[Rfam]
RNA: 7SK RNA
RNA sequence: GGAUGUGAGGGCGAUCUGGCUGCGACAUCUGUCACCCCAUUGAUCGCCAGGGUUGAUUCGGCUGAUCUGGCUGGCUAGGCGGGUGUCCCCUUCCUCCCUCACCGCUCCAUGUGCGUCCCUCCCGAAGCUGCGCGCUCGGUCGAAGAGGACGACCUUCCCCGAUAGAGGAGGACCGUUCUUCGGUCAAGGGUAUACGAGUAGCUGCGCUCCCCUGCUAGAACCUCCAAACAAGCUCUCAAGGAAAGUGCCUACAGAGAUGGUUGGUUGGAGAAGUCAGUAUAUUUGUUCCCUGUCUUCUCUCCUUGCUAAGACACAGAUUGGCUGUAUCCUU
Numbered sequence: 001g002g003a004u005g006u007g008a009g010g011g012c013g014a015u016c017u018g019g020c021u022g023c024g025a026c027a028u029c030u031g032u033c034a035c036c037c038c039a040u041u042g043a044u045c046g047c048c049a050g051g052g053u054u055g056a057u058u059c060g061g062c063u064g065a066u067c068u069g070g071c072u073g074g075c076u077a078g079g080c081g082g083g084u085g086u087c088c089c090c091u092u093c094c095u096c097c098c099u100c101a102c103c104g105c106u107c108c109a110u111g112u113g114c115g116u117c118c119c120u121c122c123c124g125a126a127g128c129u130g131c132g133c134g135c136u137c138g139g140u141c142g143a144a145g146a147g148g149a150c151g152a153c154c155u156u157c158c159c160c161g162a163u164a165g166a167g168g169a170g171g172a173c174c175g176u177u178c179u180u181c182g183g184u185c186a187a188g189g190g191u192a193u194a195c196g197a198g199u200a201g202c203u204g205c206g207c208u209c210c211c212c213u214g215c216u217a218g219a220a221c222c223u224c225c226a227a228a229c230a231a232g233c234u235c236u237c238a239a240g241g242a243a244a245g246u247g248c249c250u251a252c253a254g255a256g257a258u259g260g261u262u263g264g265u266u267g268g269a270g271a272a273g274u275c276a277g278u279a280u281a282u283u284u285g286u287u288c289c290c291u292g293u294c295u296u297c298u299c300u301c302c303u304u305g306c307u308a309a310g311a312c313a314c315a316g317a318u319u320g321g322c323u324g325u326a327u328c329c330u331u
Stems, first nucleotide, its partner, number of pairs: 001108003005102007013093002018090002024087010035074002037070003042067004046062003116171002118168004122139004127135002140162003147158003208281001212277003222270004228265002231262004308331003313325004